[Rfam]
Nucleotides: 133
Base pairs, nucleotide, nucleotide: 007131008130009129010128011127012126013125019124020123021122022121023120055090056089057088058087062085063084068080069079070078071077072076
Number, partner (000 for none) and nucleotide at each position: 001000u002000g003000g004000u005000a006000g007131a008130a009129u010128c011127c012126c013125c014000a015000g016000u017000g018000c019124a020123g021122c022121c023120c024000u025000g026000g027000a028000u029000g030000a031000g032000c033000c034000u035000g036000c037000a038000g039000u040000a041000u042000u043000u044000u045000c046000c047000u048000u049000a050000u051000a052000u053000g054000a055090u056089c057088a058087g059000u060000c061000c062085u063084c064000a065000c066000u067000g068080c069079u070078g071077g072076c073000a074000a075000u076072g077071c078070c079069a080068g081000a082000c083000u084063g085062g086000c087058c088057u089056g090055a091000g092000a093000g094000g095000a096000u097000u098000a099000u100000g101000g102000a103000a104000a105000c106000a107000u108000g109000u110000g111000c112000g113000g114000c115000g116000a117000g118000c119000a120023g121022g122021g123020c124019u125013g126012g127011g128010g129009a130008u131007u132000a133000a
A member of the RNA family "small Cajal body-specific RNA 17" from Erinaceus europaeus, 133 nucleotides long.
Rfam links the family to the GO terms Cajal body, RNA processing and nucleolus.
The family's RNA type in Rfam is small Cajal body RNA.
The organism belongs to Erinaceus, within Eukaryota.
For this family Rfam cites "Cajal body-specific small nuclear RNAs: a novel class of 2'-O-methylation and pseudouridylation guide RNAs" (Darzacq et al., EMBO J, 2002).
The base pairs follow the family's consensus structure, which is taken from published work.